Rfam assigns this 94-nucleotide sequence from Chromatocurvus halotolerans to the family "SAM-I/IV (S-adenosyl methionine) riboswitch aptamer". Lineage of the source: Bacteria > Pseudomonadati > Gammaproteobacteria > Halieaceae > Chromatocurvus. The family's consensus secondary structure is taken from published work. The match comes from Rfam's covariance-model search (66 bits).
RNA sequence: AAUCAGCAUCAAGAGAGGCAAAGCCUCGCCAACCGCCCACUCCGGGAACGGUGGUCAAACGAUGCGCCAGGACACUGGAACAUAUAGGAGCUAG
Numbered sequence: 001a002a003u004c005a006g007c008a009u010c011a012a013g014a015g016a017g018g019c020a021a022a023g024c025c026u027c028g029c030c031a032a033c034c035g036c037c038c039a040c041u042c043c044g045g046g047a048a049c050g051g052u053g054g055u056c057a058a059a060c061g062a063u064g065c066g067c068c069a070g071g072a073c074a075c076u077g078g079a080a081c082a083u084a085u086a087g088g089a090g091c092u093a094g
Stems, first nucleotide, its partner, number of pairs: 006065005015027005028055003033051003037046002040090004067078004